The record is a 78-nucleotide RNA sequence from Flavobacterium johnsoniae, which matches "Flavo-1 RNA" in Rfam. The family's RNA type in Rfam is small RNA. The base pairs follow the family's consensus structure, which is taken from published work. It is one of the family's seed sequences. The organism belongs to Flavobacterium johnsoniae, within Bacteria.
RNA sequence: CCCUAGCCCUGAUAGCAGCGGCAUCCUUUUUGUUUUUUCUUUAAAAACAAAAAGAUAUAGCGGAUAGCAGGAAAUAGC
Numbered sequence: 001c002c003c004u005a006g007c008c009c010u011g012a013u014a015g016c017a018g019c020g021g022c023a024u025c026c027u028u029u030u031u032g033u034u035u036u037u038u039c040u041u042u043a044a045a046a047a048c049a050a051a052a053a054g055a056u057a058u059a060g061c062g063g064a065u066a067g068c069a070g071g072a073a074a075u076a077g078c
Stems, first nucleotide, its partner, number of pairs: 009070003013066002018061002023056003029051005034044002